[Rfam]
RNA sequence: UUGCUUCUAACGGGGUGCCGGAAACGGCUGAGAGGCGAAAGCCAACCCGAUGAACCUGAUCCGGUUAGCACCGGCGUAGGGAUUAGACGCGAUUGUGCG
Numbered sequence: 001u002u003g004c005u006u007c008u009a010a011c012g013g014g015g016u017g018c019c020g021g022a023a024a025c026g027g028c029u030g031a032g033a034g035g036c037g038a039a040a041g042c043c044a045a046c047c048c049g050a051u052g053a054a055c056c057u058g059a060u061c062c063g064g065u066u067a068g069c070a071c072c073g074g075c076g077u078a079g080g081g082a083u084u085a086g087a088c089g090c091g092a093u094u095g096u097g098c099g
Base pairs, nucleotide, nucleotide: 006087007086008085009084010083011049012048013047014046017028018027019026020025035042036041055080056079057078058077061074062073063072064071
The family of this 99-nucleotide sequence from Roseitalea porphyridii is "TPP riboswitch aptamer (THI element)". It scores 69 bits against the family's covariance model. The source organism's lineage runs through Bacteria, Pseudomonadati, Pseudomonadota, Ahrensiaceae and Roseitalea.